A member of the RNA family "MIR7504 microRNA precursor family" from Gossypium stocksii, 125 nucleotides long. Rfam links the family to the GO terms miRNA-mediated post-transcriptional gene silencing and RISC complex. Taxonomically the source falls in Gossypium (Eukaryota, Viridiplantae, Tracheophyta, eudicotyledons). It scores 85 bits against the family's covariance model. The base pairs follow the family's consensus structure, which was predicted with RNAalifold.
RNA sequence: AAUAGGAAAAUGACAAAUUAGACUUCUUCUCUUGAUUUUUAGCAUUUUUAGUUGAAUUUAAUUUUUUUUAAUGAGGAAAAAGCUGAAAAUUAGGAGAAAAAAAUCUAAUUUGUCAUUCUUCUAUU
Numbered sequence: 001a002a003u004a005g006g007a008a009a010a011u012g013a014c015a016a017a018u019u020a021g022a023c024u025u026c027u028u029c030u031c032u033u034g035a036u037u038u039u040u041a042g043c044a045u046u047u048u049u050a051g052u053u054g055a056a057u058u059u060a061a062u063u064u065u066u067u068u069u070a071a072u073g074a075g076g077a078a079a080a081a082g083c084u085g086a087a088a089a090u091u092a093g094g095a096g097a098a099a100a101a102a103a104u105c106u107a108a109u110u111u112g113u114c115a116u117u118c119u120u121c122u123a124u125u
Base pairs, nucleotide, nucleotide: 001125002124003123004122005121006120007119009117010116011115012114013113014112015111016110017109018108019107020106021105022104024101025100027098029096030095031094032093033092034091035090036089037088038087039086041084042083045080046079047078048077